[Rfam]
RNA sequence: ACGGGGCAAAGCAACCUCCCGGUCAGGCCUUUCGCGCCCAAGCGUUGC
Numbered sequence: 001a002c003g004g005g006g007c008a009a010a011g012c013a014a015c016c017u018c019c020c021g022g023u024c025a026g027g028c029c030u031u032u033c034g035c036g037c038c039c040a041a042g043c044g045u046u047g048c
Stems, first nucleotide, its partner, number of pairs: 002021005011048005026038003